Record summary: This 117-nucleotide sequence from Desulfotomaculum copahuensis belongs to the Rfam family "Molybdenum/Tungsten riboswitch aptamer (Moco RNA motif)". It scores 70 bits against the family's covariance model. Rfam 15.1 lists 1,248 matches to the family in 836 species. The family's consensus secondary structure is taken from published work.

RNA sequence: AAGAAAAUUGAUCUCCGAGCCCGGUUACCUAAAGCAGUCGCCAUGGUGCCAGGGCCGAUAGGGUGUGCGGGGAAACCGACACACCUCCCGUGCGGAAAGGAGAUGGCUUACAAUGAC
Numbered sequence: 001a002a003g004a005a006a007a008u009u010g011a012u013c014u015c016c017g018a019g020c021c022c023g024g025u026u027a028c029c030u031a032a033a034g035c036a037g038u039c040g041c042c043a044u045g046g047u048g049c050c051a052g053g054g055c056c057g058a059u060a061g062g063g064u065g066u067g068c069g070g071g072g073a074a075a076c077c078g079a080c081a082c083a084c085c086u087c088c089c090g091u092g093c094g095g096a097a098a099g100g101a102g103a104u105g106g107c108u109u110a111c112a113a114u115g116a117c
Base pairs, nucleotide, nucleotide: 003111006108011104012103013102014101015100016099019055020054021053022052024050026048027047028046029045034041035040061086062085063084064083065082066081067080070077071076087095088094
Dot-bracket structure: ..(..(....((((((..((((.(.((((....((....))...)))).).)))).....(((((((..((....))..)))))))((.....))...))))))...)..)......